[Rfam]
RNA sequence: UCCGCCACGCCUCUUUUCAAUGCGUACCAGGGCGGAA
Numbered sequence: 001u002c003c004g005c006c007a008c009g010c011c012u013c014u015u016u017u018c019a020a021u022g023c024g025u026a027c028c029a030g031g032g033c034g035g036a037a
Stems, first nucleotide, its partner, number of pairs: 001036006008024003
Rfam assigns this 37-nucleotide RNA from Muribaculaceae bacterium Isolate-037 to the family "abiF RNA". Rfam's curators write: Actinobacteria, Bacteroidetes, Clostridia, Proteobacteria, one Clostridia phage. Rfam classes the family as a small RNA. The base pairs follow the family's consensus structure, which is taken from published work.